[Rfam]
Record summary:
Bacterial RNase P class A: a 418-nucleotide RNA sequence from Candidatus Afipia apatlaquensis.

RNA sequence: UCAGUCGGCUGGACGGCCGCUCCGGCAAGGAUCGAAAGGUCGCCGGGGAGGAAAGUCCGGGCUCCAUCGACAUACGGUGCCGGAUAACACCCGGCGGGGGCGACCCCAGGGAAAGUGCCACAGAGAACGAACCGCCUUCACUCCGUGAAGGUAAGGGUGAAAAGGUGCGGUAAGAGCGCACCGCGUUUCUAGCAAUAGAGACGGCAUGGCAAACCCCACCGGGAGCAAAACCGAAUAGGGACGGCACAGUGGAAAGUUCGCUCACGGGCGAUAACUCCGCGGGGCGAUGUCAGGCCCGCUGUCCGGGUAGGUUGCUUGAGGCGCAAGGUAACUUGCGUCCCAGAGGAAUGGCCGUCACGUCUGCGUGGUGCGAACCAUUCAGGCCCUACAGAACCCGGCUUACAGGCCGGCUGAUACC
Numbered sequence: 001u002c003a004g005u006c007g008g009c010u011g012g013a014c015g016g017c018c019g020c021u022c023c024g025g026c027a028a029g030g031a032u033c034g035a036a037a038g039g040u041c042g043c044c045g046g047g048g049a050g051g052a053a054a055g056u057c058c059g060g061g062c063u064c065c066a067u068c069g070a071c072a073u074a075c076g077g078u079g080c081c082g083g084a085u086a087a088c089a090c091c092c093g094g095c096g097g098g099g100g101c102g103a104c105c106c107c108a109g110g111g112a113a114a115g116u117g118c119c120a121c122a123g124a125g126a127a128c129g130a131a132c133c134g135c136c137u138u139c140a141c142u143c144c145g146u147g148a149a150g151g152u153a154a155g156g157g158u159g160a161a162a163a164g165g166u167g168c169g170g171u172a173a174g175a176g177c178g179c180a181c182c183g184c185g186u187u188u189c190u191a192g193c194a195a196u197a198g199a200g201a202c203g204g205c206a207u208g209g210c211a212a213a214c215c216c217c218a219c220c221g222g223g224a225g226c227a228a229a230a231c232c233g234a235a236u237a238g239g240g241a242c243g244g245c246a247c248a249g250u251g252g253a254a255a256g257u258u259c260g261c262u263c264a265c266g267g268g269c270g271a272u273a274a275c276u277c278c279g280c281g282g283g284g285c286g287a288u289g290u291c292a293g294g295c296c297c298g299c300u301g302u303c304c305g306g307g308u309a310g311g312u313u314g315c316u317u318g319a320g321g322c323g324c325a326a327g328g329u330a331a332c333u334u335g336c337g338u339c340c341c342a343g344a345g346g347a348a349u350g351g352c353c354g355u356c357a358c359g360u361c362u363g364c365g366u367g368g369u370g371c372g373a374a375c376c377a378u379u380c381a382g383g384c385c386c387u388a389c390a391g392a393a394c395c396c397g398g399c400u401u402a403c404a405g406g407c408c409g410g411c412u413g414a415u416a417c418c
Base pairs, nucleotide, nucleotide: 001414002413003412004411005410006409007408008407009406010405011403012356013355014354015353016352017351018350020048021047022046023045024044025043026042028040053401054400055399057398058397059396060395061394062225063224064223065222075221076220077219078218079217080094081093082092083091095109096107097106098105099104110216111215115214116213117210118209119208132156133155134152135151136150137149138148139147140146141145164182165181166180167179168178169177183205184203185202186201187200188199189198190197191196229313230312231311232310239304240303241302242301243300244299282297283296284295285294320339321338322337323336324335325334326333327332